[Rfam]
RNA sequence: GGAGGCGUCUGAGCGCCUGGUGGCCUCCCCGGCCUUCAAAGCCGACGGUCCCGAGGACCUCGGGACGGCGGGUUCGAUUCCCGCACGCCUCC
Numbered sequence: 001g002g003a004g005g006c007g008u009c010u011g012a013g014c015g016c017c018u019g020g021u022g023g024c025c026u027c028c029c030c031g032g033c034c035u036u037c038a039a040a041g042c043c044g045a046c047g048g049u050c051c052c053g054a055g056g057a058c059c060u061c062g063g064g065a066c067g068g069c070g071g072g073u074u075c076g077a078u079u080c081c082c083g084c085a086c087g088c089c090u091c092c
Stems, first nucleotide, its partner, number of pairs: 001092008011027003015024003030044004048066005069083004

The family of this 92-nucleotide sequence from Actinomadura soli is "Selenocysteine transfer RNA".
The family's consensus secondary structure is taken from published work.
It scores 69 bits against the family's covariance model.
Taxonomically the source falls in Actinomadura (Bacteria, Actinomycetota, Actinomycetes, Thermomonosporaceae).